[Rfam]
RNA: MIR8008 microRNA precursor family
RNA sequence: AAUCUCAGAAAAGCGACAGACAGGGUCCUUUAGUCUGUCGCUUUUCUGCGAUUUU
Numbered sequence: 001a002a003u004c005u006c007a008g009a010a011a012a013g014c015g016a017c018a019g020a021c022a023g024g025g026u027c028c029u030u031u032a033g034u035c036u037g038u039c040g041c042u043u044u045u046c047u048g049c050g051a052u053u054u055u
Base pairs, nucleotide, nucleotide: 001053002052003051004050006048007047008046009045010044011043012042013041014040015039016038017037018036019035020034021033